This 195-nucleotide RNA sequence from Heyndrickxia coagulans belongs to the Rfam family "6S / SsrS RNA". Rfam classes the family as a non-coding RNA gene.

RNA sequence: UACAAGCUGCGUUGUACGUAAUAUUAAUAAAGUUUUAACCUUUAAACUGUUAUAGGGAGUUUAACAUUAUUGCGGGAAUGCCGAGCCUUUUGCCGUUUGGCAGGGAGGAUGGCAGGAACGCUUUUGCGGACACCCACUUUGAGGAGUGUGGUUCUAAAACUUUCUUAGUUUGAUUACGGCAACUGCGGCACAUAC
Dot-bracket structure: .(...((((((((((.(((..........((((.((((((..............(((.((((...(..(..(((.....((....(((((.............)))))...)).....)))..))..)))).)))..............)))..))).)))).............))))))).))))))...)..
Taxonomically the source falls in Heyndrickxia coagulans (Bacteria, Bacillota, Bacilli, Bacillaceae). Rfam describes the family as follows. E. coli 6S RNA was the first non coding RNA to be sequenced, but its function was unknown until recently. It consists of 184 nucleotides that fold into an extended hairpin structure with a large single-stranded internal bulge. The 6S RNA specifically associates with RNA polymerase holoenzyme containing the sigma70 specificity factor. This interaction represses expression from a sigma70-dependent promoter during stationary phase. 6S RNA homologs have recently been identified in most bacterial genomes. Many Gram-positive species have two copies of 6S RNA. In Bacillus subtilis, both copies appear to interact with RNA polymerase holoenzyme containing the housekeeping sigma factor and be expressed during different stages of growth. In many proteobacteria, 6S RNA may be processed from a transcript encoding homologs of the E. coli YgfA protein which is a putative 5-formyltetrahydrofolate cycloligase activity.